RNA sequence: CGCCCACUGAAUGUACUGAAUGGGCCCUGGCAUAGCUUUGCGCUGGGAUUUGGGCUCAGGAAAGCCCCCGGGCCGUGAUCUGCAGAGAUGCAGUCUCGAAGAUUUUGAGAACCGGAGUUCUAGGCUGAGACGCAUGCGGAGCCUCCGUAGACUCUGGCCCGAAGUUGCAUUGGCCGACCGUCAGAGUCAUUCACUAGGCCCUUACAUCAUCGUAUGGGCAAACCGAACGGGGCUUACACUUCAGUGGUC
Number, nucleotide and partner (000 for none) at each position: 001c000002g249003c000004c247005c246006a245007c244008u243009g242010a241011a240012u000013g000014u196015a195016c000017u193018g192019a191020a000021u058022g057023g056024g055025c054026c053027c052028u000029g044030g043031c042032a000033u040034a039035g000036c000037u000038u000039u034040g033041c000042g031043c030044u029045g000046g000047g000048a000049u000050u000051u000052g027053g026054g025055c024056u023057c022058a021059g000060g000061a000062a235063a234064g233065c000066c232067c231068c230069c229070g000071g000072g000073c000074c000075g000076u000077g000078a000079u000080c000081u092082g091083c090084a089085g000086a000087g000088a000089u084090g083091c082092a081093g103094u102095c101096u100097c000098g000099a000100a096101g095102a094103u093104u000105u162106u161107g160108a000109g000110a000111a000112c157113c156114g155115g154116a153117g000118u000119u151120c150121u149122a144123g143124g142125c141126u000127g000128a000129g000130a000131c000132g137133c000134a000135u000136g000137c132138g000139g000140a000141g125142c124143c123144u122145c000146c000147g000148u000149a121150g120151a119152c000153u116154c115155u114156g113157g112158c000159c000160c107161g106162a105163a000164g000165u000166u000167g000168c000169a000170u000171u000172g000173g000174c000175c000176g000177a000178c000179c000180g000181u000182c000183a000184g000185a000186g000187u000188c000189a000190u000191u019192c018193a017194c000195u015196a014197g000198g219199c218200c217201c216202u000203u214204a213205c212206a000207u000208c000209a000210u000211c000212g205213u204214a203215u000216g201217g200218g199219c198220a000221a000222a000223c000224c000225g000226a000227a000228c000229g069230g068231g067232g066233c064234u063235u062236a000237c000238a000239c000240u011241u010242c009243a008244g007245u006246g005247g004248u000249c002
A member of the RNA family "RNase MRP" from Eucalyptus grandis, 249 nucleotides long. Its Rfam clan is "RNaseP clan". Rfam links the family to the GO terms ribonuclease MRP complex, ribonuclease MRP activity and rRNA processing. From the family's description: RNase MRP is an enzymatically active ribonucleoprotein with two distinct roles in eukaryotes. In mitochondria it plays a direct role in the initiation of mitochondrial DNA replication.